[Rfam]
RNA sequence: GUCUCUAUGAUGAUGAAUUUGUUUUACAAAUGACCUUUUAUCUCCUGAGAAGUUUUCAGUGCUGAAUAAUUUUGGAGACCUGAACUGAAGAGAC
Numbered sequence: 001g002u003c004u005c006u007a008u009g010a011u012g013a014u015g016a017a018u019u020u021g022u023u024u025u026a027c028a029a030a031u032g033a034c035c036u037u038u039u040a041u042c043u044c045c046u047g048a049g050a051a052g053u054u055u056u057c058a059g060u061g062c063u064g065a066a067u068a069a070u071u072u073u074g075g076a077g078a079c080c081u082g083a084a085c086u087g088a089a090g091a092g093a094c
Stems, first nucleotide, its partner, number of pairs: 003092004
Dot-bracket structure: ..((((..................................................................................))))..
Record summary
A member of the RNA family "Small nucleolar RNA Z159/U59" from Olea europaea, 94 nucleotides long. Rfam classes the family as a C/D-box small nucleolar RNA. The literature on the family includes a 2003 paper in Nucleic Acids Res by Chen et al., "The high diversity of snoRNAs in plants: identification and comparative study of 120 snoRNA genes from Oryza sativa".